RNA sequence: GAAGUCUGUCAGGCGAUCGCAGGGGAGAAAGACCUCGGAGGAAAGUCCGGACUCCAUAGGACGGUGUAGGAGGUAACGCCUCUCCGCCGCAAGGCGAGGAUUAGAGCUACAGAGACGAGCCGAUUUAGUUCGGGUGAAACGAGCAAUCUCUACACGGAGCAACAUCAAAUAGGCAGCUGCUGACCCUGUCCGGCGAGGCUGCGGGUAGAUGGCUCGAUCCCAAGGGUGACUUUGGGACUAGAUGAAUGACCGCCAAGGCGUUUUUCAACGCUGAACAGAAUCCGGCUUAUAGACGGACUUCGCGC
Dot-bracket structure: ((((((((((([[[[.[[.(.((((.......)))).)....(((.(((((((((...[[[[.((((((((((.....)))))(((((....)))).)((...(((((...........((((......))))........)))..)))))))))))))...((((......((((((.....(((.]]]])).).)))))).....))))......((((((((....))))))))..........]].]]]]..........................)))))))).).))))))))))....

A member of the RNA family "Bacterial RNase P class A" from Parasutterella muris, 305 nucleotides long. It scores 216 bits against the family's covariance model. The family's consensus secondary structure is taken from published work.